A member of the RNA family "Plant signal recognition particle RNA" from Ipomoea nil, 303 nucleotides long. For this family Rfam cites "Towards the structure of the mammalian signal recognition particle" (Wild et al., Curr Opin Struct Biol, 2002). The family's consensus secondary structure is taken from published work. It is annotated as a non-coding RNA gene. The match comes from Rfam's covariance-model search (251 bits).

RNA sequence: GCUGGGCUUGGUAGCGUGAGCCUGUAACCCAAGUGGGAGCAAUAAGUUGGUGGAAUGGUUGGUCUUACCCUGAAGGCUGGGCUUGGGGUGCUAUUACUGGCCUGCCCGUUCCAAGUGGUGAGUCUGGCCGUGGAGUCUUUGCGAAGGCGAAGGCUUCUCGUCCAUUAGAAUGGAGGGCACCGCGUGAGGCUGGUUUCACAGAGCAGCGAACACCUCCUCCUCUCUGCAGUGGAAGGAUAACGGGCCGGAGUAUCUUCAGUCCACCAGAGCCUGAUGGGUUGUCCAAAUUAAACCACCAUCUUU
Numbered sequence: 001g002c003u004g005g006g007c008u009u010g011g012u013a014g015c016g017u018g019a020g021c022c023u024g025u026a027a028c029c030c031a032a033g034u035g036g037g038a039g040c041a042a043u044a045a046g047u048u049g050g051u052g053g054a055a056u057g058g059u060u061g062g063u064c065u066u067a068c069c070c071u072g073a074a075g076g077c078u079g080g081g082c083u084u085g086g087g088g089u090g091c092u093a094u095u096a097c098u099g100g101c102c103u104g105c106c107c108g109u110u111c112c113a114a115g116u117g118g119u120g121a122g123u124c125u126g127g128c129c130g131u132g133g134a135g136u137c138u139u140u141g142c143g144a145a146g147g148c149g150a151a152g153g154c155u156u157c158u159c160g161u162c163c164a165u166u167a168g169a170a171u172g173g174a175g176g177g178c179a180c181c182g183c184g185u186g187a188g189g190c191u192g193g194u195u196u197c198a199c200a201g202a203g204c205a206g207c208g209a210a211c212a213c214c215u216c217c218u219c220c221u222c223u224c225u226g227c228a229g230u231g232g233a234a235g236g237a238u239a240a241c242g243g244g245c246c247g248g249a250g251u252a253u254c255u256u257c258a259g260u261c262c263a264c265c266a267g268a269g270c271c272u273g274a275u276g277g278g279u280u281g282u283c284c285a286a287a288u289u290a291a292a293c294c295a296c297c298a299u300c301u302u303u
Stems, first nucleotide, its partner, number of pairs: 001040003004023007028037003044302003048298006056290002059287002062283001064281001069277002074272005079262005085256002088254001091250002097248008106236002109234005115227004120222003125164003129160002132157011165170001172217005183208003190201003